[Rfam]
This 63-nucleotide sequence from Pan troglodytes belongs to the Rfam family "U7 small nuclear RNA". The literature on the family includes a 2007 paper in Genomics Proteomics Bioinformatics by Marz et al., "U7 snRNAs: a computational survey". Animal histone pre-mRNAs are spliced by a different mechanism than nuclear pre-mRNAs and self-splicing introns. Pairs were carried over by alignment from the consensus structure, which was predicted with PFOLD. A search with the family's covariance model found it, with a score of 38 bits.
RNA sequence: GAGUGGUGCAGCCCUUUUAGAAUUUUUCUGGCAGGUUUUCUGGUUUUCACAGAAAACAUCCCC
Numbered sequence: 001g002a003g004u005g006g007u008g009c010a011g012c013c014c015u016u017u018u019a020g021a022a023u024u025u026u027u028c029u030g031g032c033a034g035g036u037u038u039u040c041u042g043g044u045u046u047u048c049a050c051a052g053a054a055a056a057c058a059u060c061c062c063c
Base pairs, nucleotide, nucleotide: 034060035059036058037055038054039053040052041051042050044049